RNA sequence: AAAUAAAAAACCUGCAGAGAUAACUCUGCAGGGUCCCUUUGUUUUCCAUAUGAAAAACAAAAAGGCAAAGGGAGAGGAGAAACCGGAGGAAGAACUUAUGGGGAAGUGUAAGUCUUCUUCCGUUU
Numbered sequence: 001a002a003a004u005a006a007a008a009a010a011c012c013u014g015c016a017g018a019g020a021u022a023a024c025u026c027u028g029c030a031g032g033g034u035c036c037c038u039u040u041g042u043u044u045u046c047c048a049u050a051u052g053a054a055a056a057a058c059a060a061a062a063a064g065g066c067a068a069a070g071g072g073a074g075a076g077g078a079g080a081a082a083c084c085g086g087a088g089g090a091a092g093a094a095c096u097u098a099u100g101g102g103g104a105a106g107u108g109u110a111a112g113u114c115u116u117c118u119u120c121c122g123u124u125u
Stems, first nucleotide, its partner, number of pairs: 011032009035072005040059006084122004089117004094113005
Shown here is a 125-nucleotide sequence from Oceanobacillus iheyensis, a member of the family "ylbH leader".
It is annotated as a cis-regulatory leader.
The base pairs follow the family's consensus structure.
A search with the family's covariance model found it, with a score of 86 bits.
This family is a putative regulatory RNA structure that is found upstream of the ylbH gene in B. subtilis and related low GC Gram-positive bacteria.
The literature on the family includes a 2004 paper in Proc Natl Acad Sci U S A by Barrick et al., "New RNA motifs suggest an expanded scope for riboswitches in bacterial genetic control".